[Rfam]
RNA sequence: UGAUGGUCCGAUGGUAGUGGGUUAUCAGAACUUAUUAACAUCAGUGUCACUAAAGUUGGUAUUCAAACCCCCACUGCUAAAUUUUUUGAUUGGCUUUUA
Numbered sequence: 001u002g003a004u005g006g007u008c009c010g011a012u013g014g015u016a017g018u019g020g021g022u023u024a025u026c027a028g029a030a031c032u033u034a035u036u037a038a039c040a041u042c043a044g045u046g047u048c049a050c051u052a053a054a055g056u057u058g059g060u061a062u063u064c065a066a067a068c069c070c071c072c073a074c075u076g077c078u079a080a081a082u083u084u085u086u087u088g089a090u091u092g093g094c095u096u097u098u099a
Base pairs, nucleotide, nucleotide: 002094004092005091006090007089008088010087011086015079016075017074018073019072020071021070033061034060035059037057038056
Shown here is a 99-nucleotide sequence from Microcebus murinus, a member of the family "Y RNA".
Y RNAs are components of the Ro ribonucleoprotein particle (Ro RNP), in association with Ro60 and La proteins.
The organism belongs to Microcebus, within Eukaryota.
A reference for the family is Chen et al. (2000), "Ro ribonucleoproteins contribute to the resistance of Deinococcus radiodurans to ultraviolet irradiation", Genes Dev.
By type it is a non-coding RNA gene.